[Rfam]
Shown here is a 71-nucleotide RNA sequence from Arthrobacter alpinus, a member of the family "Actino-pnp RNA". Pairs were carried over by alignment from the consensus structure, which is taken from published work. The organism belongs to Arthrobacter, within Bacteria.
RNA sequence: CGCGGUCCUCGGUAGUGGUCUCCGGGAGAAGCCUUUGGGCUUGUACCCGUGGACCUCGAUCGAAGACCGGG
Numbered sequence: 001c002g003c004g005g006u007c008c009u010c011g012g013u014a015g016u017g018g019u020c021u022c023c024g025g026g027a028g029a030a031g032c033c034u035u036u037g038g039g040c041u042u043g044u045a046c047c048c049g050u051g052g053a054c055c056u057c058g059a060u061c062g063a064a065g066a067c068c069g070g071g
Base pairs, nucleotide, nucleotide: 001071003069004068005067006066007065009063010062011061012060013059017055018054019053020052021051023049024048025047026046027044